[Rfam]
RNA sequence: UGUUGCCUGAUCAGCAACAAGGGAGUGACUGAAUAACCCUGUUGGAAAUAGGCGGGGUAAAGUGAUGGCUUAGAGGUGGUGCUCGCUGUUGGGAACAACAGAACCCCGACCAAGGGAAGUCAGACAGUGUGAUCCUAAUUUCGCUUUAGCGAUUCCUCACACUUGUUGGUAUGAAGUAAUCCAACCUCCCACCCU
Numbered sequence: 001u002g003u004u005g006c007c008u009g010a011u012c013a014g015c016a017a018c019a020a021g022g023g024a025g026u027g028a029c030u031g032a033a034u035a036a037c038c039c040u041g042u043u044g045g046a047a048a049u050a051g052g053c054g055g056g057g058u059a060a061a062g063u064g065a066u067g068g069c070u071u072a073g074a075g076g077u078g079g080u081g082c083u084c085g086c087u088g089u090u091g092g093g094a095a096c097a098a099c100a101g102a103a104c105c106c107c108g109a110c111c112a113a114g115g116g117a118a119g120u121c122a123g124a125c126a127g128u129g130u131g132a133u134c135c136u137a138a139u140u141u142c143g144c145u146u147u148a149g150c151g152a153u154u155c156c157u158c159a160c161a162c163u164u165g166u167u168g169g170u171a172u173g174a175a176g177u178a179a180u181c182c183a184a185c186c187u188c189c190c191a192c193c194c195u
Stems, first nucleotide, its partner, number of pairs: 001019006021190005028063002037057006066122006073084003077112004086101006104116003126163007141152004145175003165185005
RNA: manA RNA